Source information: This 191-nucleotide RNA from Acinetobacter sp. NBRC 100985 belongs to the Rfam family "Aar sRNA". The literature on the family includes a 2010 paper in Arch Microbiol by Schilling et al., "The small RNA Aar in Acinetobacter baylyi: a putative regulator of amino acid metabolism". Rfam classes the family as a small RNA. The organism belongs to Acinetobacter, within Bacteria. The base pairs follow the family's consensus structure, which was predicted with mfold. Rfam links the family to the GO term regulation of cellular amino acid metabolic process.
RNA sequence: AUUAACAUCUAUUAACAGUAGUUAACAUGAAUACCUAUGAACUUAGUCAGGUUUUUUUAUAAUAUAGCGAUGUAGGUUAGGUAACACUAAUCUCAUGACAUUUCUCCUUUCAACCGAAACUGUUUUAAACAGAUUCGUUGUUCAACGCAAUGACAACCCCAAUCAUUGCGUUUUUUUUCGCCUAAAGAAUA
Numbered sequence: 001a002u003u004a005a006c007a008u009c010u011a012u013u014a015a016c017a018g019u020a021g022u023u024a025a026c027a028u029g030a031a032u033a034c035c036u037a038u039g040a041a042c043u044u045a046g047u048c049a050g051g052u053u054u055u056u057u058u059a060u061a062a063u064a065u066a067g068c069g070a071u072g073u074a075g076g077u078u079a080g081g082u083a084a085c086a087c088u089a090a091u092c093u094c095a096u097g098a099c100a101u102u103u104c105u106c107c108u109u110u111c112a113a114c115c116g117a118a119a120c121u122g123u124u125u126u127a128a129a130c131a132g133a134u135u136c137g138u139u140g141u142u143c144a145a146c147g148c149a150a151u152g153a154c155a156a157c158c159c160c161a162a163u164c165a166u167u168g169c170g171u172u173u174u175u176u177u178u179c180g181c182c183u184a185a186a187g188a189a190u191a
Stems, first nucleotide, its partner, number of pairs: 014053003019049001021047003026039003067190001071186001073184005078097002081094001084091001115137004120132004145171009